[Rfam]
RNA sequence: AUGCCUUAAACUAAUGAGUAAGGAAAAUAACAAACUGGGGUGAUGCCUGGUUUUCUCGCUUAGUAUGAGAUGAAUUUUUGAAUGGGUGCAGGUUUCCCCUUGGAGGAUCUGCUUACUUUGCAGAAUUGUCACAACAUUAACAAUGUAAAUGACAUA
Numbered sequence: 001a002u003g004c005c006u007u008a009a010a011c012u013a014a015u016g017a018g019u020a021a022g023g024a025a026a027a028u029a030a031c032a033a034a035c036u037g038g039g040g041u042g043a044u045g046c047c048u049g050g051u052u053u054u055c056u057c058g059c060u061u062a063g064u065a066u067g068a069g070a071u072g073a074a075u076u077u078u079u080g081a082a083u084g085g086g087u088g089c090a091g092g093u094u095u096c097c098c099c100u101u102g103g104a105g106g107a108u109c110u111g112c113u114u115a116c117u118u119u120g121c122a123g124a125a126u127u128g129u130c131a132c133a134a135c136a137u138u139a140a141c142a143a144u145g146u147a148a149a150u151g152a153c154a155u156a
Stems, first nucleotide, its partner, number of pairs: 004023005032053008054070005083156002086153002091150001093148002096145001100139001102130002105127002108124005
Dot-bracket structure: ...(((((..........)))))........((((((((......))))))))(((((.......)))))............((.((...(.((.(...(.((.((.(((((.......))))).)).))........).....).)).).)).))

A member of the RNA family "U12 minor spliceosomal RNA" from Aquarana catesbeiana, 156 nucleotides long. Rfam classes the family as a spliceosomal small nuclear RNA. A search with the family's covariance model found it, with a score of 84 bits. The source organism's lineage runs through Eukaryota, Metazoa, Deuterostomia, Ranoidea and Aquarana. The family is grouped with related families in Rfam's "U2 clan".